[Rfam]
This 46-nucleotide RNA sequence from Chanos chanos belongs to the Rfam family "Histone 3' UTR stem-loop".
The source organism's lineage runs through Eukaryota, Metazoa, Bilateria, Chordata and Chanos.
The base pairs follow the family's consensus structure, which is taken from published work.
About the family: The mRNAs of metazoan histone genes lack a poly-A tail. 3' end processing occurs at a site between a highly conserved stem-loop (modelled by this family) and a purine rich region around 20 nts downstream (the histone downstream element, or HDE). The stem-loop is bound by a 31 kDa stem-loop binding protein (SLBP - also termed the histone hairpin binding protein, or HBP). Together with U7 snRNA binding of the HDE, SLBP binding nucleate s the formation of the processing complex. The histone 3' UTR stem-loop is also involved in nucleocytoplasmic transport of the mRNA, and in stability regulation and translation efficiency in the cytoplasm.
Rfam classes the family as a cis-regulatory element.
RNA sequence: UCAAAGGCUCUUUUAAGAGCCACCUCAGUCAUCUAUCAAAAGAUCG
Numbered sequence: 001u002c003a004a005a006g007g008c009u010c011u012u013u014u015a016a017g018a019g020c021c022a023c024c025u026c027a028g029u030c031a032u033c034u035a036u037c038a039a040a041a042g043a044u045c046g
Stems, first nucleotide, its partner, number of pairs: 006021006